RNA: DABA-DC-AT RNA
RNA sequence: CCAAUCUCGGACUGUUGAGAAACAACUCAAUUCUGGGGGAUACGCGUAGUGACCAUUCAAGCUGAUUGUGACGCUGCGUAGGGUAGGUAUCGGUAAAGCGGUUACCGAUAGACGGGAUACUAGUGUUGCUAGAAGGCAACAUGUAAAUGGGAAACCCAACA
Numbered sequence: 001c002c003a004a005u006c007u008c009g010g011a012c013u014g015u016u017g018a019g020a021a022a023c024a025a026c027u028c029a030a031u032u033c034u035g036g037g038g039g040a041u042a043c044g045c046g047u048a049g050u051g052a053c054c055a056u057u058c059a060a061g062c063u064g065a066u067u068g069u070g071a072c073g074c075u076g077c078g079u080a081g082g083g084u085a086g087g088u089a090u091c092g093g094u095a096a097a098g099c100g101g102u103u104a105c106c107g108a109u110a111g112a113c114g115g116g117a118u119a120c121u122a123g124u125g126u127u128g129c130u131a132g133a134a135g136g137c138a139a140c141a142u143g144u145a146a147a148u149g150g151g152a153a154a155c156c157c158a159a160c161a
Stems, first nucleotide, its partner, number of pairs: 006037006044079008054068002088110009124141006
Dot-bracket structure: .....((((((....................))))))......((((((((..((...........))...))))))))........(((((((((.....))))))))).............((((((......))))))....................